[Rfam]
RNA sequence: GCCGAGUUAAGUAGCGAGAGCUUGUGACCCAAGUGGGGGCGUUAGGAUUGUUGAAUUUGGGCUCGUCUUGCAGGGCCGGGCUUUAAUGUAGCUAACAUGCUGGCUUGCCCGUUCCAAGUUAAGAGCUGGUCAAUAUGGCUCAGGCGAACGCCUGUCCUUUAUUGGUCCUAGAGUGAAGGGCACUGCGUCAGGCUGGUCUCACAGAGCAGCGUUCACCUUCCGCUCCUAGCCGUGGCAGGAUAACAGGCCGGUGCCUCAUGGGUCCCUCAAAAGCCUAGAUUGCUAGCCCAAUCAGACAACAGUUCUU
Numbered sequence: 001g002c003c004g005a006g007u008u009a010a011g012u013a014g015c016g017a018g019a020g021c022u023u024g025u026g027a028c029c030c031a032a033g034u035g036g037g038g039g040c041g042u043u044a045g046g047a048u049u050g051u052u053g054a055a056u057u058u059g060g061g062c063u064c065g066u067c068u069u070g071c072a073g074g075g076c077c078g079g080g081c082u083u084u085a086a087u088g089u090a091g092c093u094a095a096c097a098u099g100c101u102g103g104c105u106u107g108c109c110c111g112u113u114c115c116a117a118g119u120u121a122a123g124a125g126c127u128g129g130u131c132a133a134u135a136u137g138g139c140u141c142a143g144g145c146g147a148a149c150g151c152c153u154g155u156c157c158u159u160u161a162u163u164g165g166u167c168c169u170a171g172a173g174u175g176a177a178g179g180g181c182a183c184u185g186c187g188u189c190a191g192g193c194u195g196g197u198c199u200c201a202c203a204g205a206g207c208a209g210c211g212u213u214c215a216c217c218u219u220c221c222g223c224u225c226c227u228a229g230c231c232g233u234g235g236c237a238g239g240a241u242a243a244c245a246g247g248c249c250g251g252u253g254c255c256u257c258a259u260g261g262g263u264c265c266c267u268c269a270a271a272a273g274c275c276u277a278g279a280u281u282g283c284u285a286g287c288c289c290a291a292u293c294a295g296a297c298a299a300c301a302g303u304u305c306u307u
Stems, first nucleotide, its partner, number of pairs: 001040003004023005028037003044306010056294001058291001060289001061287003065283002071278001073276004078266003082262004087258001090256002093253002100251008109239002112237001114235003118230004123225004128167008137158002141154005168173001175220005185212004193204003